[Rfam]
RNA sequence: UAGCAAAUGAGAGCUUUUUGAAUCAAGUAAUAUAAUGAUUCAAAAAGUUCUCAA
Numbered sequence: 001u002a003g004c005a006a007a008u009g010a011g012a013g014c015u016u017u018u019u020g021a022a023u024c025a026a027g028u029a030a031u032a033u034a035a036u037g038a039u040u041c042a043a044a045a046a047g048u049u050c051u052c053a054a
Stems, first nucleotide, its partner, number of pairs: 008053018

Description:
The family of this 54-nucleotide sequence from Ricinus communis is "Plastid-ccsA-ndhD-1 3UTR RNA". The family is grouped with related families in Rfam's "Plastid-ccsA_ndhD 3UTR RNA clan". Rfam describes the family as follows. Plastid-ccsA-ndhD-1 is a non-coding RNA (ncRNA) recognised in plastids. It was found in the three prime untranslated region (3UTR) of ccsA and ndhD genes, its 3UTR location suggests a role in transcript maturation. The organism belongs to Ricinus, within Eukaryota. Rfam classes the family as a cis-regulatory element. The base pairs follow the family's consensus structure, which was predicted with LocARNA.